[Rfam]
RNA sequence: UACUUGUAAUGAGUCUCCGUCGGAAGGUGCACCGUCAUCCUCCUUACCUCUUCCUGCUAGUAACUCUGGCUGAGAGCCCAGUUCGAGUCCGGUGGUAUUCGACCCACUCAAGUAGGUAACUCUUGAUGCUGGGCGAAUCUAAGCAAUGAAUACUAUUGUUGAGGGAAGCAAUUCUGCAAACACGUAUUCACCAUUGGGCGGCGGCGCUGGAAUACUCUUGUUAGGGUUGGAAAGGGUGAAGAGGGCUGGUGUAUCGACCGAUUUU
Numbered sequence: 001u002a003c004u005u006g007u008a009a010u011g012a013g014u015c016u017c018c019g020u021c022g023g024a025a026g027g028u029g030c031a032c033c034g035u036c037a038u039c040c041u042c043c044u045u046a047c048c049u050c051u052u053c054c055u056g057c058u059a060g061u062a063a064c065u066c067u068g069g070c071u072g073a074g075a076g077c078c079c080a081g082u083u084c085g086a087g088u089c090c091g092g093u094g095g096u097a098u099u100c101g102a103c104c105c106a107c108u109c110a111a112g113u114a115g116g117u118a119a120c121u122c123u124u125g126a127u128g129c130u131g132g133g134c135g136a137a138u139c140u141a142a143g144c145a146a147u148g149a150a151u152a153c154u155a156u157u158g159u160u161g162a163g164g165g166a167a168g169c170a171a172u173u174c175u176g177c178a179a180a181c182a183c184g185u186a187u188u189c190a191c192c193a194u195u196g197g198g199c200g201g202c203g204g205c206g207c208u209g210g211a212a213u214a215c216u217c218u219u220g221u222u223a224g225g226g227u228u229g230g231a232a233a234g235g236g237u238g239a240a241g242a243g244g245g246c247u248g249g250u251g252u253a254u255c256g257a258c259c260g261a262u263u264u265u
Base pairs, nucleotide, nucleotide: 002014003013004012019262020261021260022259023258026255027254028253029252030251033248034246035245036244041242042241044239045238046237047236048235049234051232052231053230054229056070057069058068059067060066071223072222073218074217075216076215078210079209080208081207082206083204084203085202087199088198089197090196091195092194093193094192095191097138098137099136100135101134103132104131105128106127108126109125110124111123112122114121115120139143147190148189149188150187151186152185153184157182158181159180160179165174166173167172
Fungal signal recognition particle RNA: a 265-nucleotide sequence from Polyplosphaeria fusca. The match comes from Rfam's covariance-model search (145 bits). Taxonomically the source falls in Polyplosphaeria (Eukaryota, leotiomyceta, Dothideomycetes, Pleosporomycetidae). Rfam classes the family as a non-coding RNA gene. The family's consensus secondary structure is taken from published work. On this family, see Batey et al., Science 2000: "Crystal structure of the ribonucleoprotein core of the signal recognition particle".